[Rfam]
Rfam assigns this 94-nucleotide sequence to the family "L4-Archaeoglobi ribosomal protein leades".
RNA sequence: CUGAUGGUGGCGCAAGGGUAGAACUCGGAGUUGAGUGCCCGGUGCCCCUCCACACCAAGAGAACGGUGAGACGAGGGCAGCGCCUGAACGUCAG
Numbered sequence: 001c002u003g004a005u006g007g008u009g010g011c012g013c014a015a016g017g018g019u020a021g022a023a024c025u026c027g028g029a030g031u032u033g034a035g036u037g038c039c040c041g042g043u044g045c046c047c048c049u050c051c052a053c054a055c056c057a058a059g060a061g062a063a064c065g066g067u068g069a070g071a072c073g074a075g076g077g078c079a080g081c082g083c084c085u086g087a088a089c090g091u092c093a094g
Stems, first nucleotide, its partner, number of pairs: 001094005009084005016040003023036005043079005053068004
Dot-bracket structure: (((((...(((((..(((....(((((....))))).)))..(((((.....((((........))))......)))))))))).....)))))
Pairs were carried over by alignment from the consensus structure, which is taken from published work.